[Rfam]
RNA: Purine riboswitch aptamer
Organism: Clostridium sp. CAG:62
RNA sequence: UCUAUGAUAUGAUUUCAGUGUUAUAUAGGUUUGUAAUUGGUCAAACGUUUCUACGAACUACCGUAAUAGUUUACUAUAACAAUUAUGGUAGUUUUU
Dot-bracket structure: ..................(((((((...(((((........)))))........((((((......))))))..)))))))...............